[Rfam]
RNA sequence: CCAGGGCGGCGGCUGGGGACAACCCCAUGGGGGUGGCUGG
Numbered sequence: 001c002c003a004g005g006g007c008g009g010c011g012g013c014u015g016g017g018g019a020c021a022a023c024c025c026c027a028u029g030g031g032g033g034u035g036g037c038u039g040g
Stems, first nucleotide, its partner, number of pairs: 001030003005026002

Shown here is a 40-nucleotide RNA sequence from Varecia variegata, a member of the family "Prion pseudoknot". It is annotated as a cis-regulatory element. For this family Rfam cites "Pseudoknots in prion protein mRNAs confirmed by comparative sequence analysis and pattern searching" (Barrette et al., Nucleic Acids Res, 2001). Lineage of the source: Eukaryota > Bilateria > Euteleostomi > Lemuridae > Varecia variegata. Pairs were carried over by alignment from the consensus structure, which is taken from published work. Rfam's curators write: This family represents a predicted pseudoknot structure found in prion protein mRNA. It has been suggested that the family has a possible effect in prion protein translation. The sequence is in the family's curated seed alignment.